[Rfam]
RNA sequence: CCUCUUUCUUAAUAACCGCAGAGCGCCUAUAUUCAGACUGUUCCUUCGGGAUCUAUGGGGAUAAACGCCCACGUAAUAAGCGGACUGGACCCGGGUGCGAUUCCCGGCGGCUCCACCAUCUCUCCCUUACGGGACAUCAUGGGGCCGAUCAGCAUCGACAGACGUGUAAAGGUGUAGCCUUCUCCAGGUUUGGGCCGCCUUGAUCAGCCCAAAAUUCUAGUUGCGAACGAUAACUUCGCUUCGGAUGUCGCUCUUGCUGCGUAAUGCGGCGGAGUAAAUCCACCUAAACUCCUGGGGAAUAAGCCCUCCAGGCGGGGCCCGAUGGGGGCCUGGCAACAGAACCCCAUCACU
Number, nucleotide and partner (000 for none) at each position: 001c000002c000003u000004c000005u000006u000007u000008c000009u000010u000011a000012a000013u000014a000015a000016c000017c000018g000019c000020a000021g000022a000023g000024c000025g000026c000027c000028u000029a000030u000031a000032u000033u000034c000035a000036g000037a000038c000039u000040g053041u000042u051043c050044c049045u000046u000047c000048g000049g044050g043051a042052u000053c040054u000055a000056u000057g185058g184059g183060g182061a181062u000063a000064a000065a000066c000067g178068c177069c000070c174071a173072c172073g000074u000075a000076a000077u000078a000079a000080g000081c164082g163083g000084a000085c161086u160087g159088g000089a000090c000091c107092c106093g105094g104095g103096u000097g000098c000099g000100a000101u000102u000103c095104c094105c093106g092107g091108c147109g146110g145111c144112u143113c142114c141115a000116c000117c000118a000119u000120c000121u000122c000123u000124c000125c000126c000127u000128u000129a000130c000131g000132g000133g000134a000135c000136a000137u000138c000139a000140u000141g114142g113143g112144g111145c110146c109147g108148a000149u000150c000151a000152g000153c000154a000155u000156c000157g000158a000159c087160a086161g085162a000163c082164g081165u000166g000167u000168a000169a000170a000171g000172g072173u071174g070175u000176a000177g068178c067179c000180u000181u061182c060183u059184c058185c057186a200187g199188g198189u197190u000191u211192g210193g209194g208195c207196c000197g189198c188199c187200u186201u000202g000203a000204u000205c000206a000207g195208c194209c193210c192211a191212a000213a000214a000215u000216u000217c000218u000219a000220g000221u000222u000223g000224c000225g000226a000227a000228c000229g000230a000231u000232a000233a000234c000235u000236u000237c000238g000239c000240u000241u000242c000243g000244g000245a000246u000247g000248u000249c000250g000251c000252u000253c000254u000255u000256g000257c000258u000259g000260c000261g000262u000263a000264a000265u000266g000267c000268g000269g000270c000271g000272g000273a000274g000275u000276a000277a000278a000279u000280c000281c000282a000283c000284c000285u000286a000287a000288a000289c000290u000291c000292c000293u000294g000295g000296g000297g000298a000299a000300u000301a000302a000303g000304c000305c000306c000307u000308c000309c000310a000311g000312g000313c000314g000315g331316g330317g329318c328319c000320c000321g348322a347323u346324g345325g344326g343327g000328g318329c317330c316331u315332g000333g000334c000335a000336a000337c000338a000339g000340a000341a000342c000343c326344c325345c324346a323347u322348c321349a000350c000351u000
RNA: Alphaproteobacteria transfer-messenger RNA